Annotation:
Bacterial large subunit ribosomal RNA: a 232-nucleotide part of an RNA from an uncultured bacterium. Gene Ontology terms of the family: ribosome and structural constituent of ribosome. Pairs were carried over by alignment from the consensus structure, which is taken from published work.

RNA sequence: GAGUUAUUCUGUGCGGCAAGGUUAAUCUCGGAGACGAGAGCAGCCGUAGCGAAAGCGAGUCUGAAUAGGGCGCUCAGUCUCACAGAAUAGACCCGAAGCGGUGUGAGCUAACCAUGACCAGGAUGAAGCGUGGGUAAAACCACGUGGAGGUCCGAACUAGUGUAAGUUGAAAAUUGCUUGGAUGAGUUGUGGUUAGGGGUGAAAGGCUUAUCAAACACUGUAAUAGCUGGUU
Numbered sequence: 001g002a003g004u005u006a007u008u009c010u011g012u013g014c015g016g017c018a019a020g021g022u023u024a025a026u027c028u029c030g031g032a033g034a035c036g037a038g039a040g041c042a043g044c045c046g047u048a049g050c051g052a053a054a055g056c057g058a059g060u061c062u063g064a065a066u067a068g069g070g071c072g073c074u075c076a077g078u079c080u081c082a083c084a085g086a087a088u089a090g091a092c093c094c095g096a097a098g099c100g101g102u103g104u105g106a107g108c109u110a111a112c113c114a115u116g117a118c119c120a121g122g123a124u125g126a127a128g129c130g131u132g133g134g135u136a137a138a139a140c141c142a143c144g145u146g147g148a149g150g151u152c153c154g155a156a157c158u159a160g161u162g163u164a165a166g167u168u169g170a171a172a173a174u175u176g177c178u179u180g181g182a183u184g185a186g187u188u189g190u191g192g193u194u195a196g197g198g199g200u201g202a203a204a205g206g207c208u209u210a211u212c213a214a215a216c217a218c219u220g221u222a223a224u225a226g227c228u229g230g231u232u
Stems, first nucleotide, its partner, number of pairs: 005089009015079003020045004026039003049056002059071004092230002095227001099220006108196011119184001121153004128145006157181003162177004198208003